[Rfam]
RNA sequence: GAACAGUGUGUGGAUGGUGUUCAGUACCAAGGACAGGUGUGUGUGUCUGUGGAUGGUGUUCAGUACCAAGGACAGGUGUGUGCCU
Numbered sequence: 001g002a003a004c005a006g007u008g009u010g011u012g013g014a015u016g017g018u019g020u021u022c023a024g025u026a027c028c029a030a031g032g033a034c035a036g037g038u039g040u041g042u043g044u045g046u047c048u049g050u051g052g053a054u055g056g057u058g059u060u061c062a063g064u065a066c067c068a069a070g071g072a073c074a075g076g077u078g079u080g081u082g083c084c085u
Stems, first nucleotide, its partner, number of pairs: 004075001006073002015068007023060007033050007
Shown here is an 85-nucleotide RNA from Branchiostoma belcheri, a member of the family "mir-2060 microRNA precursor family". A search with the family's covariance model found it, with a score of 63 bits.